[Rfam]
RNA sequence: GUCAGUCACAACGGGAGCUCGGAGCACCGGGCUGAGAGGGCGGCUGCACGCGCCGCCGACCGUCGGAACCUGGCCCGGGUAAUGCCGGCGUAGGGAGCUUCUCACGUGUCGAC
Numbered sequence: 001g002u003c004a005g006u007c008a009c010a011a012c013g014g015g016a017g018c019u020c021g022g023a024g025c026a027c028c029g030g031g032c033u034g035a036g037a038g039g040g041c042g043g044c045u046g047c048a049c050g051c052g053c054c055g056c057c058g059a060c061c062g063u064c065g066g067a068a069c070c071u072g073g074c075c076c077g078g079g080u081a082a083u084g085c086c087g088g089c090g091u092a093g094g095g096a097g098c099u100u101c102u103c104a105c106g107u108g109u110c111g112a113c
Stems, first nucleotide, its partner, number of pairs: 008099001011063004017032005039057005069094004075088004
The family of this 113-nucleotide RNA from Asanoa hainanensis is "TPP riboswitch aptamer (THI element)". NCBI's taxonomy places the organism under Bacteria, Bacillati, Micromonosporales, Micromonosporaceae, Asanoa. Pairs were carried over by alignment from the consensus structure, which is taken from published work. Rfam describes the family as follows. Vitamin B(1) in its active form thiamin pyrophosphate (TPP) is an essential coenzyme that is synthesised by coupling of pyrimidine and thiazole moieties in bacteria.